[Rfam]
Nucleotides: 151
Stems, first nucleotide, its partner, number of pairs: 001133001005023003024131006034042002043116003051092004095110004
Number, partner (000 for none) and nucleotide at each position: 001133u002000c003000a004000u005023u006022u007021c008000g009000c010000a011000a012000g013000c014000a015000g016000a017000a018000u019000c020000u021007g022006g023005a024131a025130c026129g027128g028127g029126g030000g031000a032000a033000c034042c035041a036000u037000u038000u039000c040000c041035u042034g043116g044115g045114g046000c047000a048000a049000a050000u051092c052091u053090u054089c055000c056000a057000a058000u059000u060000u061000c062000a063000c064000u065000u066000c067000g068000u069000u070000c071000u072000g073000a074000g075000a076000a077000c078000g079000g080000g081000g082000g083000a084000a085000a086000u087000a088000a089054g090053g091052a092051g093000a094000a095110g096109g097108a098107c099000a100000u101000c102000u103000c104000u105000c106000a107098g108097u109096c110095c111000u112000a113000g114045c115044c116043c117000g118000u119000c120000a121000g122000c123000u124000a125000a126029c127028u128027c129026c130025g131024u132000a133001g134000g135000c136000a137000u138000g139000g140000a141000g142000a143000g144000g145000a146000g147000a148000c149000u150000g151000a